The record is a 54-nucleotide RNA from Hucho hucho, which matches "UnaL2 LINE 3' element" in Rfam.
It scores 61 bits against the family's covariance model.
From the family's description: The eel long interspersed element (LINE) UnaL2 and its partner short interspersed element (SINE) share a conserved 3' tail containing a stem-loop that is critical for their retrotransposition. Presumably, the first step of retrotransposition is the recognition of their 3' tails by UnaL2-encoded reverse transcriptase. The solution structure of a 17-nucleotide RNA derived from the 3' tail of UnaL2 was determined by NMR.
By type it is a cis-regulatory element.
The base pairs follow the family's consensus structure, which is taken from published work.
Rfam 15.1 lists 493,311 matches to the family in 99 species.
RNA sequence: UACACGCAUGACUAUAAGUCACUUUGUAUAAAAGUGUCUGCUAAAUGGCAUAUA
Numbered sequence: 001u002a003c004a005c006g007c008a009u010g011a012c013u014a015u016a017a018g019u020c021a022c023u024u025u026g027u028a029u030a031a032a033a034g035u036g037u038c039u040g041c042u043a044a045a046u047g048g049c050a051u052a053u054a
Stems, first nucleotide, its partner, number of pairs: 013043001015040002020036006
Dot-bracket structure: ............(.((...((((((.....))))))..))..)...........